Overview: The family of this 78-nucleotide RNA from Arachis hypogaea is "small nucleolar RNA snoR114". Pairs were carried over by alignment from the consensus structure, which was predicted with RNAalifold.
RNA sequence: GAGCCAUGACGACAAGAACUUGUGAUGGAGGGUCCUUCACGUCUCAUCUAUUCGAUGAUUAAAAGUUCGACUGAGCUC
Number, nucleotide and partner (000 for none) at each position: 001g078002a077003g076004c075005c000006a000007u000008g000009a000010c000011g000012a000013c000014a000015a000016g000017a000018a000019c000020u000021u000022g000023u000024g000025a000026u000027g000028g000029a000030g000031g000032g000033u000034c000035c000036u000037u000038c000039a000040c000041g000042u000043c000044u000045c000046a000047u000048c000049u000050a000051u000052u000053c000054g000055a000056u000057g000058a000059u000060u000061a000062a000063a000064a000065g000066u000067u000068c000069g000070a000071c000072u000073g000074a000075g004076c003077u002078c001